The record is a 93-nucleotide RNA sequence from Sorghum bicolor, which matches "MIR5387 microRNA precursor family" in Rfam. Rfam links the family to the GO terms RISC complex and miRNA-mediated post-transcriptional gene silencing. The family's consensus secondary structure was predicted with RNAalifold.

RNA sequence: UCGUAACACGAACCGGUGCUAAAGGGUCCUGCCCAACGGCUACUGACAGGUGCUGUCGGGGCAGGGACCUUUAGCACCGGUUUUUGCCCUGAA
Numbered sequence: 001u002c003g004u005a006a007c008a009c010g011a012a013c014c015g016g017u018g019c020u021a022a023a024g025g026g027u028c029c030u031g032c033c034c035a036a037c038g039g040c041u042a043c044u045g046a047c048a049g050g051u052g053c054u055g056u057c058g059g060g061g062c063a064g065g066g067a068c069c070u071u072u073a074g075c076a077c078c079g080g081u082u083u084u085u086g087c088c089c090u091g092a093a
Stems, first nucleotide, its partner, number of pairs: 003090001007086002010083016027067001029065002032060003036056002043049002